[Rfam]
RNA sequence: GGUUUAGACUCACUUUAUUACCCUUGAAGUUAAAGGAGUCUAUGCCGAGUGUGACCCAAUCAAACACGACCGCAUAGAAAAUCUAUGCGGUUUUUUUGUCGU
Numbered sequence: 001g002g003u004u005u006a007g008a009c010u011c012a013c014u015u016u017a018u019u020a021c022c023c024u025u026g027a028a029g030u031u032a033a034a035g036g037a038g039u040c041u042a043u044g045c046c047g048a049g050u051g052u053g054a055c056c057c058a059a060u061c062a063a064a065c066a067c068g069a070c071c072g073c074a075u076a077g078a079a080a081a082u083c084u085a086u087g088c089g090g091u092u093u094u095u096u097u098g099u100c101g102u
Stems, first nucleotide, its partner, number of pairs: 001046003005042007014034004069091010
About this RNA: trpB ncRNA motif: a 102-nucleotide RNA sequence from Aerococcus urinae. It is one of the family's seed sequences. Pairs were carried over by alignment from the consensus structure, which is taken from published work.